RNA sequence: UCAAGAGAAUCGGAGACGGUUUGUGUCUCUGUGUUCAGAAGAACUGCGAGGUAUAACAAAAUCAACGGCCGAGAUAUCGUUUCAGUCGUCAUUUUUUGUUGGCGAUUCGAUUGUUGCUCGUCCACAU
Numbered sequence: 001u002c003a004a005g006a007g008a009a010u011c012g013g014a015g016a017c018g019g020u021u022u023g024u025g026u027c028u029c030u031g032u033g034u035u036c037a038g039a040a041g042a043a044c045u046g047c048g049a050g051g052u053a054u055a056a057c058a059a060a061a062u063c064a065a066c067g068g069c070c071g072a073g074a075u076a077u078c079g080u081u082u083c084a085g086u087c088g089u090c091a092u093u094u095u096u097u098g099u100u101g102g103c104g105a106u107u108c109g110a111u112u113g114u115u116g117c118u119c120g121u122c123c124a125c126a127u
Base pairs, nucleotide, nucleotide: 007036008035009034010033013029014028015027016026017025018024067123068122070120071119072118073117076111077110078109079108085106086105087104088103089102090101091100093098
About this RNA
The record is a 127-nucleotide sequence from Carpinus fangiana, which matches "Small nucleolar RNA snoR111" in Rfam. The source organism's lineage runs through Eukaryota, Euphyllophyta, Gunneridae, Betulaceae and Carpinus. The literature on the family includes a 2002 paper in Curr Biol by Marker et al., "Experimental RNomics: identification of 140 candidates for small non-messenger RNAs in the plant Arabidopsis thaliana".